A member of the RNA family "Streptococcus sRNA SpF59 (ldcC RNA)", 64 nucleotides long. Rfam's curators put it in the seed alignment. The literature on the family includes a 2012 paper in PLoS Pathog by Mann et al., "Control of virulence by small RNAs in Streptococcus pneumoniae".
[Rfam]
RNA sequence: UGACCGCCCGGUUUCUGCGCGAAAACGGUGCCAAGGCCAUACGGACAGCCGGGUCAAAUGCCGA
Numbered sequence: 001u002g003a004c005c006g007c008c009c010g011g012u013u014u015c016u017g018c019g020c021g022a023a024a025a026c027g028g029u030g031c032c033a034a035g036g037c038c039a040u041a042c043g044g045a046c047a048g049c050c051g052g053g054u055c056a057a058a059u060g061c062c063g064a
Stems, first nucleotide, its partner, number of pairs: 001056005006031002008028003